[Rfam]
RNA sequence: UUACUCUGACUUCUCUUCAGAUUGUAUAAAUCUUUCGCCUUUUACUAAAGAUUUCCGUGGAGAGGAUCAAUAAGAGUUUUACUCAAUUUUUUGAUGCCCUGCUUUAAUGUGGGGCU
Numbered sequence: 001u002u003a004c005u006c007u008g009a010c011u012u013c014u015c016u017u018c019a020g021a022u023u024g025u026a027u028a029a030a031u032c033u034u035u036c037g038c039c040u041u042u043u044a045c046u047a048a049a050g051a052u053u054u055c056c057g058u059g060g061a062g063a064g065g066a067u068c069a070a071u072a073a074g075a076g077u078u079u080u081a082c083u084c085a086a087u088u089u090u091u092u093g094a095u096g097c098c099c100u101g102c103u104u105u106a107a108u109g110u111g112g113g114g115c116u
Stems, first nucleotide, its partner, number of pairs: 003077004009067001011066009028054008094116001096115006
Background: This 116-nucleotide RNA sequence from Larimichthys crocea belongs to the Rfam family "U5 spliceosomal RNA". NCBI's taxonomy places the organism under Eukaryota, Actinopterygii, Actinopteri, Euacanthomorphacea, Larimichthys. Pairs were carried over by alignment from the consensus structure, which is taken from published work. Its family is annotated with U5 snRNP and spliceosomal tri-snRNP complex assembly in the Gene Ontology. Rfam's curators write: U5 RNA is a component of both types of known spliceosome. It scores 96 bits against the family's covariance model.